[Rfam]
RNA sequence: CGGGAGAACUCUCGUUAAGGAACUCGGCAAAAUGACCCCGUAACUUCGGGAGAAGGGGUGCUUCAUAUACAUGGAGCCGCAGUGAAUAGGCCCAAGCGACUGUUUAGCAAAAACACAGGUCUCUGCGAAGCCGAAAGGCGAAGUAUAGGGGCUGACACCUGCCCGGUGCUGGAAGGUUAAGGGGAAGAGUUAGGACCUUUGGUCCGAAGCUUAGAACCGAAGCCCCAGUAAACGGCGGCCGUAACUAUAACGGUCCUAAGGUAGCGAAAUUCCUUGUCGGGUAAGUUCCGACCCGCACGAAAGGUGCAACGACUUGGGCACUGUCUCAACGAGAGACCCG
Numbered sequence: 001c002g003g004g005a006g007a008a009c010u011c012u013c014g015u016u017a018a019g020g021a022a023c024u025c026g027g028c029a030a031a032a033u034g035a036c037c038c039c040g041u042a043a044c045u046u047c048g049g050g051a052g053a054a055g056g057g058g059u060g061c062u063u064c065a066u067a068u069a070c071a072u073g074g075a076g077c078c079g080c081a082g083u084g085a086a087u088a089g090g091c092c093c094a095a096g097c098g099a100c101u102g103u104u105u106a107g108c109a110a111a112a113a114c115a116c117a118g119g120u121c122u123c124u125g126c127g128a129a130g131c132c133g134a135a136a137g138g139c140g141a142a143g144u145a146u147a148g149g150g151g152c153u154g155a156c157a158c159c160u161g162c163c164c165g166g167u168g169c170u171g172g173a174a175g176g177u178u179a180a181g182g183g184g185a186a187g188a189g190u191u192a193g194g195a196c197c198u199u200u201g202g203u204c205c206g207a208a209g210c211u212u213a214g215a216a217c218c219g220a221a222g223c224c225c226c227a228g229u230a231a232a233c234g235g236c237g238g239c240c241g242u243a244a245c246u247a248u249a250a251c252g253g254u255c256c257u258a259a260g261g262u263a264g265c266g267a268a269a270u271u272c273c274u275u276g277u278c279g280g281g282u283a284a285g286u287u288c289c290g291a292c293c294c295g296c297a298c299g300a301a302a303g304g305u306g307c308a309a310c311g312a313c314u315u316g317g318g319c320a321c322u323g324u325c326u327c328a329a330c331g332a333g334a335g336a337c338c339c340g
Stems, first nucleotide, its partner, number of pairs: 001340004009335008018326003035059005044049001060077007078082001090319007097311002101115003118153008126143001130139003156306004161236003166233002168229005175224003181218002187212004193205004237255006256260001266293001276292006
RNA: Bacterial large subunit ribosomal RNA, nucleotides 1691 to 2030